[Rfam]
Vertebrate telomerase RNA: a 456-nucleotide RNA from Ptilorrhoa leucosticta. NCBI's taxonomy places the organism under Eukaryota, Dipnotetrapodomorpha, Tetrapoda, Corvoidea, Ptilorrhoa. Its family is annotated with telomere maintenance via telomerase, telomerase catalytic core complex and telomerase activity in the Gene Ontology.

RNA sequence: CGUGCCGGGGUGGACAGGUCCUGCGGCCAACUAACCCUAAUGGCGGCUGCGCCCCUCACGCCCGCCCGCUGUUUUACUCGCUGACUUUCAGCGGGCAAAGGGAGCGGCCUAAGGAAAUGGGAGGGAGGGGGGAAAAGAGGUCCGGCCUCCUCAAAAAAAGCCAGCGAGGGGAAUCCACACCCCGGCCCACCCUGGGGUCCCUGUCCCUCCUCCGCAACCGGGGAUGCUCCCCCCCGUCGCCGUUCGUAGAGGCCGCGGUCGGCAGGCUCAGCGCCGCUACCGCCGCGAAGAGUUCGUCUCUGUCAGCCUUGGCGGCGGUCGGGACUGGAGGGCCGGCCCGCCCAUCCUGGGCAGCCGGGGGACCCCAGCAGAACAAAACGGGCGCGGCGCCGCUGGCGCUGAGCAGCCGCGGCUCCCUCAGAUGUGGGAUGCGCGGCCGGCGCCGCCCCGACACCC
Numbered sequence: 001c002g003u004g005c006c007g008g009g010g011u012g013g014a015c016a017g018g019u020c021c022u023g024c025g026g027c028c029a030a031c032u033a034a035c036c037c038u039a040a041u042g043g044c045g046g047c048u049g050c051g052c053c054c055c056u057c058a059c060g061c062c063c064g065c066c067c068g069c070u071g072u073u074u075u076a077c078u079c080g081c082u083g084a085c086u087u088u089c090a091g092c093g094g095g096c097a098a099a100g101g102g103a104g105c106g107g108c109c110u111a112a113g114g115a116a117a118u119g120g121g122a123g124g125g126a127g128g129g130g131g132g133a134a135a136a137g138a139g140g141u142c143c144g145g146c147c148u149c150c151u152c153a154a155a156a157a158a159a160g161c162c163a164g165c166g167a168g169g170g171g172a173a174u175c176c177a178c179a180c181c182c183c184g185g186c187c188c189a190c191c192c193u194g195g196g197g198u199c200c201c202u203g204u205c206c207c208u209c210c211u212c213c214g215c216a217a218c219c220g221g222g223g224a225u226g227c228u229c230c231c232c233c234c235c236g237u238c239g240c241c242g243u244u245c246g247u248a249g250a251g252g253c254c255g256c257g258g259u260c261g262g263c264a265g266g267c268u269c270a271g272c273g274c275c276g277c278u279a280c281c282g283c284c285g286c287g288a289a290g291a292g293u294u295c296g297u298c299u300c301u302g303u304c305a306g307c308c309u310u311g312g313c314g315g316c317g318g319u320c321g322g323g324a325c326u327g328g329a330g331g332g333c334c335g336g337c338c339c340g341c342c343c344a345u346c347c348u349g350g351g352c353a354g355c356c357g358g359g360g361g362a363c364c365c366c367a368g369c370a371g372a373a374c375a376a377a378a379c380g381g382g383c384g385c386g387g388c389g390c391c392g393c394u395g396g397c398g399c400u401g402a403g404c405a406g407c408c409g410c411g412g413c414u415c416c417c418u419c420a421g422a423u424g425u426g427g428g429a430u431g432c433g434c435g436g437c438c439g440g441c442g443c444c445g446c447c448c449c450g451a452c453a454c455c456c
Base pairs, nucleotide, nucleotide: 005185006184007183008182009181010180011179012178019172020171021170022169051105052104054102055101064096065095066094067093068092069091070090071089080165081164082163083162085160086158087157088156192368193367194366195365196364197363198362221339222338223337225335226333227332228331229330233323234322235321236320238318239316240315241314242313243312254287255286256285257284258283260282261281262280265275266274267273289301290300291299292298380448381447382446383445386444387443388442389441390440391439407436408435409434410433411432414429415428416427417426